[Rfam]
RNA sequence: CAUAGAUUAUAUGACUGACGGAACAGUGGGUGCAACCACGUGAAGUAUAAUCGCUAAAACAAGCCGACCGUCUGGGCAGAAAAA
Numbered sequence: 001c002a003u004a005g006a007u008u009a010u011a012u013g014a015c016u017g018a019c020g021g022a023a024c025a026g027u028g029g030g031u032g033c034a035a036c037c038a039c040g041u042g043a044a045g046u047a048u049a050a051u052c053g054c055u056a057a058a059a060c061a062a063g064c065c066g067a068c069c070g071u072c073u074g075g076g077c078a079g080a081a082a083a084a
Base pairs, nucleotide, nucleotide: 005052006051007050008049009048010047011046012045015042017072018071019070020069021068026039027038028037029036063077064076065075

Rfam assigns this 84-nucleotide sequence from Anaerotignum neopropionicum to the family "ZMP/ZTP riboswitch aptamer (pfl RNA motif)". Rfam links the family to the GO terms regulation of purine nucleotide biosynthetic process and one-carbon metabolic process. The match comes from Rfam's covariance-model search (57 bits).